DUF805b RNA: a 37-nucleotide sequence from Niastella yeongjuensis. The family's RNA type in Rfam is cis-regulatory element.
[Rfam]
RNA sequence: UGUGGGUAAGCCGAAAACCACUAUUAAAGAGUAGGCG
Numbered sequence: 001u002g003u004g005g006g007u008a009a010g011c012c013g014a015a016a017a018c019c020a021c022u023a024u025u026a027a028a029g030a031g032u033a034g035g036c037g
Base pairs, nucleotide, nucleotide: 002021003020004019005018010036011035012034
Dot-bracket structure: .((((....[[[.....))))............]]].
Source information
The organism belongs to Niastella, within Bacteria.